[Rfam]
RNA sequence: GGGAGAAGGAAGGCAGGCGCAGAGCGCUUUCGGAAUGCUUUCCGACGAAUUGCCGCCGACCGUCAGGGAGGGGGCAUUACCUUGU
Numbered sequence: 001g002g003g004a005g006a007a008g009g010a011a012g013g014c015a016g017g018c019g020c021a022g023a024g025c026g027c028u029u030u031c032g033g034a035a036u037g038c039u040u041u042c043c044g045a046c047g048a049a050u051u052g053c054c055g056c057c058g059a060c061c062g063u064c065a066g067g068g069a070g071g072g073g074g075c076a077u078u079a080c081c082u083u084g085u
Stems, first nucleotide, its partner, number of pairs: 008043006016028004052075003056071002060067002
Annotation:
GA-cis RNA: an 85-nucleotide RNA from Lachnospiraceae bacterium 3-1. Pairs were carried over by alignment from the consensus structure, which is taken from published work. By type it is a small RNA. The source organism's lineage runs through Bacteria, Bacillati, Bacillota, Clostridia and Lachnospiraceae.